Overview
A member of the RNA family "Small nucleolar RNA Z161/Z228" from Protea cynaroides, 104 nucleotides long. Lineage of the source: Eukaryota > Euphyllophyta > Magnoliopsida > Proteales > Protea. The family's RNA type in Rfam is C/D-box small nucleolar RNA. On this family, see Chen et al., Nucleic Acids Res 2003: "The high diversity of snoRNAs in plants: identification and comparative study of 120 snoRNA genes from Oryza sativa".
RNA sequence: AAACCAGGUGAUGAGAUAGGUUGGAUUCGAUUUCUUACGACGAUCAUUUGAGACACAUUUCUGUGUCGAUGUUGAUAGAAUAAUCCAAUGUGUCUUUGAUGGCU
Numbered sequence: 001a002a003a004c005c006a007g008g009u010g011a012u013g014a015g016a017u018a019g020g021u022u023g024g025a026u027u028c029g030a031u032u033u034c035u036u037a038c039g040a041c042g043a044u045c046a047u048u049u050g051a052g053a054c055a056c057a058u059u060u061c062u063g064u065g066u067c068g069a070u071g072u073u074g075a076u077a078g079a080a081u082a083a084u085c086c087a088a089u090g091u092g093u094c095u096u097u098g099a100u101g102g103c104u
Stems, first nucleotide, its partner, number of pairs: 001104001004101001054065003